A member of the RNA family "Potassium channel RNA editing signal" from Cynoglossus semilaevis, 114 nucleotides long. It is annotated as a cis-regulatory element. The base pairs follow the family's consensus structure, which is taken from published work. The organism belongs to Cynoglossus, within Eukaryota. Rfam's curators write: This family represents a group of sequences related to the human potassium channel Kv1.1 hairpin element which directs the efficient modification of an adenosine to inosine by an adenosine deaminase acting on RNA (ADAR). It scores 114 bits against the family's covariance model. The literature on the family includes a 2004 paper in Nat Struct Mol Biol by Bhalla et al., "Control of human potassium channel inactivation by editing of a small mRNA hairpin".
RNA sequence: GUUGGCUACGGUGACAUGGUCCCGACAACCAUCGGUGGGAAAAUCGUGGGCUCCCUCUGUGCCAUUGCUGGUGUGCUGACCAUUGCCCUGCCGGUACCUGUCAUUGUGUCCAAC
Numbered sequence: 001g002u003u004g005g006c007u008a009c010g011g012u013g014a015c016a017u018g019g020u021c022c023c024g025a026c027a028a029c030c031a032u033c034g035g036u037g038g039g040a041a042a043a044u045c046g047u048g049g050g051c052u053c054c055c056u057c058u059g060u061g062c063c064a065u066u067g068c069u070g071g072u073g074u075g076c077u078g079a080c081c082a083u084u085g086c087c088c089u090g091c092c093g094g095u096a097c098c099u100g101u102c103a104u105u106g107u108g109u110c111c112a113a114c
Base pairs, nucleotide, nucleotide: 001114002113004111005110007108008107009106010105011104013102014101015100016099018097021094037077038076040074049063050062051061